Background:
A member of the RNA family "Small nucleolar RNA SNORA43" from Castor canadensis, 137 nucleotides long. ACA43 is a member of the H/ACA class of snoRNA that guide the sites of modification of uridines to pseudouridines. The family's RNA type in Rfam is H/ACA-box small nucleolar RNA. Gene Ontology terms of the family: RNA processing and nucleolus.
RNA sequence: AGUGUUUGAGGCCAGAGCACCAUAGGCACACAGACAACCUGCUGUGCCUGUGACACUGGGGCAAAGAGCAAGUGGCAUUUCUAUGCUCAGUGUUCAGAAGACAGUCAGUACUAAGAAUGGUUUAUAACCUGACAUUU
Dot-bracket structure: ..(((((.((...........((((......................))))....)).)))))..........((.....(((..((...((((.(........).))))...))..))).......))........
Numbered sequence: 001a002g003u004g005u006u007u008g009a010g011g012c013c014a015g016a017g018c019a020c021c022a023u024a025g026g027c028a029c030a031c032a033g034a035c036a037a038c039c040u041g042c043u044g045u046g047c048c049u050g051u052g053a054c055a056c057u058g059g060g061g062c063a064a065a066g067a068g069c070a071a072g073u074g075g076c077a078u079u080u081c082u083a084u085g086c087u088c089a090g091u092g093u094u095c096a097g098a099a100g101a102c103a104g105u106c107a108g109u110a111c112u113a114a115g116a117a118u119g120g121u122u123u124a125u126a127a128c129c130u131g132a133c134a135u136u137u
Stems, first nucleotide, its partner, number of pairs: 003063005009057002022051004074129002081120003086115002091110004096105001